The record is a 63-nucleotide sequence from Acetonema longum, which matches "Fluoride riboswitch aptamer (crcB RNA motif)" in Rfam. The family's consensus secondary structure is taken from published work. Taxonomically the source falls in Acetonema longum (Bacteria, Bacillota, Acetonemataceae, Acetonema).
[Rfam]
RNA sequence: UACAAUAUCGGCGAUGGAGUUCGCCUUAAACCCCGUGCAAACGGUAAUGACUCCUACCACUGA
Numbered sequence: 001u002a003c004a005a006u007a008u009c010g011g012c013g014a015u016g017g018a019g020u021u022c023g024c025c026u027u028a029a030a031c032c033c034c035g036u037g038c039a040a041a042c043g044g045u046a047a048u049g050a051c052u053c054c055u056a057c058c059a060c061u062g063a
Base pairs, nucleotide, nucleotide: 010025011024012023013022016054017053018052019051020050021049033044034043035042036041